[Rfam]
The record is a 265-nucleotide RNA from Romboutsia ilealis, which matches "Bacterial large signal recognition particle RNA" in Rfam. About the family: The signal recognition particle (SRP) is a universally conserved ribonucleoprotein involved in the co-translational targeting of proteins to membranes. The family's RNA type in Rfam is non-coding RNA gene.
RNA sequence: CUGUACUAGAUGGGGAGGUAGCGGUGCCCUGUAACCUGCAAUCCGCUAUAGCAGGAUUGAAUUCCAUCUAGAGGCUUUUGCUUUGUAAGGCUGCCCUAAAUAAGUGAUGUUGACGCUUAGGUCCUGCGCAACGAAAGCUCAUGAACCCCGUCAGAUCCGGAAGGAAGCAGCGGUAAGUGAUCACUUUCGUGUGCCGCAGGGGUGCCUAAGCCGAGUUAACUGUUUAGGUAACGCUUGUGAAGUAAAGUCAAUAGAUGGUGUACAG
Numbered sequence: 001c002u003g004u005a006c007u008a009g010a011u012g013g014g015g016a017g018g019u020a021g022c023g024g025u026g027c028c029c030u031g032u033a034a035c036c037u038g039c040a041a042u043c044c045g046c047u048a049u050a051g052c053a054g055g056a057u058u059g060a061a062u063u064c065c066a067u068c069u070a071g072a073g074g075c076u077u078u079u080g081c082u083u084u085g086u087a088a089g090g091c092u093g094c095c096c097u098a099a100a101u102a103a104g105u106g107a108u109g110u111u112g113a114c115g116c117u118u119a120g121g122u123c124c125u126g127c128g129c130a131a132c133g134a135a136a137g138c139u140c141a142u143g144a145a146c147c148c149c150g151u152c153a154g155a156u157c158c159g160g161a162a163g164g165a166a167g168c169a170g171c172g173g174u175a176a177g178u179g180a181u182c183a184c185u186u187u188c189g190u191g192u193g194c195c196g197c198a199g200g201g202g203u204g205c206c207u208a209a210g211c212c213g214a215g216u217u218a219a220c221u222g223u224u225u226a227g228g229u230a231a232c233g234c235u236u237g238u239g240a241a242g243u244a245a246a247g248u249c250a251a252u253a254g255a256u257g258g259u260g261u262a263c264a265g
Stems, first nucleotide, its partner, number of pairs: 001265006009058003012030004017025001019023001035055005064258007073249005079244010092230002096227006104220002106217003115211008123200006129191002132189005137182001139180004148173004156165003